[Rfam]
RNA sequence: UUACUGCAUCAAGAGUAGAGUUUAGUCUCUCUCCAACCUGCCCACUCCGGUAAGGUGGAAAAAGUGAUGCGGCAUUCUGCAAUACAAGGAGGAAGA
Numbered sequence: 001u002u003a004c005u006g007c008a009u010c011a012a013g014a015g016u017a018g019a020g021u022u023u024a025g026u027c028u029c030u031c032u033c034c035a036a037c038c039u040g041c042c043c044a045c046u047c048c049g050g051u052a053a054g055g056u057g058g059a060a061a062a063a064g065u066g067a068u069g070c071g072g073c074a075u076u077c078u079g080c081a082a083u084a085c086a087a088g089g090a091g092g093a094a095g096a
Stems, first nucleotide, its partner, number of pairs: 006070005015031001017030004032059003037055003040051003045091004072080003
The record is a 96-nucleotide RNA, which matches "SAM-I/IV (S-adenosyl methionine) riboswitch aptamer" in Rfam.
It is one of the family's seed sequences.
Pairs were carried over by alignment from the consensus structure, which is taken from published work.